Overview
Rfam assigns this 90-nucleotide sequence from Flavonifractor sp. An100 to the family "c-di-GMP-I riboswitch aptamer". NCBI's taxonomy places the organism under Bacteria, Bacillota, Clostridia, Oscillospiraceae, Flavonifractor. Pairs were carried over by alignment from the consensus structure, which is taken from published work.

RNA sequence: AUAAUGCAAAGGCAAACCGUCUGAAAAGGCGGGACGCAAAGCCUGGGGGCUAAAGCGAAACUGCUUCGCCACGCCAGCCCGGCCGCCAUU
Numbered sequence: 001a002u003a004a005u006g007c008a009a010a011g012g013c014a015a016a017c018c019g020u021c022u023g024a025a026a027a028g029g030c031g032g033g034a035c036g037c038a039a040a041g042c043c044u045g046g047g048g049g050c051u052a053a054a055g056c057g058a059a060a061c062u063g064c065u066u067c068g069c070c071a072c073g074c075c076a077g078c079c080c081g082g083c084c085g086c087c088a089u090u
Stems, first nucleotide, its partner, number of pairs: 012037002017032006041083003045080003048075003055069004